[Rfam]
RNA sequence: UUGUAACACGGGCCGGUGCUAAAGGGUCCUGCCCAACGGCUACUGACAGGUGCUGUCGCGGCAGGGACCCUUUAGCACCGGUGUUACCAA
Numbered sequence: 001u002u003g004u005a006a007c008a009c010g011g012g013c014c015g016g017u018g019c020u021a022a023a024g025g026g027u028c029c030u031g032c033c034c035a036a037c038g039g040c041u042a043c044u045g046a047c048a049g050g051u052g053c054u055g056u057c058g059c060g061g062c063a064g065g066g067a068c069c070c071u072u073u074a075g076c077a078c079c080g081g082u083g084u085u086a087c088c089a090a
Stems, first nucleotide, its partner, number of pairs: 003087006013081015029065002032060001034058001036056002043049002

About this RNA: Shown here is a 90-nucleotide sequence from Sorghum bicolor, a member of the family "MIR5387 microRNA precursor family". It scores 74 bits against the family's covariance model. Rfam links the family to the GO terms miRNA-mediated post-transcriptional gene silencing and RISC complex. The family's consensus secondary structure was predicted with RNAalifold. The source organism's lineage runs through Eukaryota, Embryophyta, Mesangiospermae, Poaceae and Sorghum.